[Rfam]
RNA sequence: AGCUGUUCCCCUCUGGAGGUUUGAAACCUUCACAACUGAAAGGGCCCAAGUUUCUUGUGGCCCUCUUUUUUUGUCGGC
Dot-bracket structure: .......(.((...)).)......................(((((((((.....))).))))))..............
The family of this 78-nucleotide sequence from Ensifer meliloti is "Makes More Granules Regulator RNA (mmgR)". Rfam's curators write: SuhB later renamed mmgR (makes more granules regulator) was a putative non-coding RNA found multiple times in the Agrobacterium tumefaciens genome and related alpha-proteobacteria. Other non-coding RNAs uncovered in the same analysis include: speF, ybhL, metA, and serC.Several studies inSinorhizobium meliloti showed that suhB element is indeed a non-coding RNA:firstly it was detected on Northern blot and called Sm8RNA, secondly in an RNAseq study referred to as SmelC689.The mutant phenotype's (strain lacking the small RNA) cytoplasm contains higher content of polyhydroxybutyrate (PBH)storage granules than wild type strain. The sRNA is required to limit the PBH intracellular accumulation when the nitrogen-fixing Sinorhizobium meliloti is under condition of surplus carbon in relation to nitrogen. It has been renamed to mmgR. Further study confirmed that mmgR fine-tunes the regulation of PBH storage.Northern blot confirmed the expression of the sRNA in other rhizobia species. MmgR homologues were found in most alpha-proteobacteria. It is annotated as a small RNA. Gene Ontology terms of the family: protein binding, response to nitrogen compound and DNA-templated transcription, termination.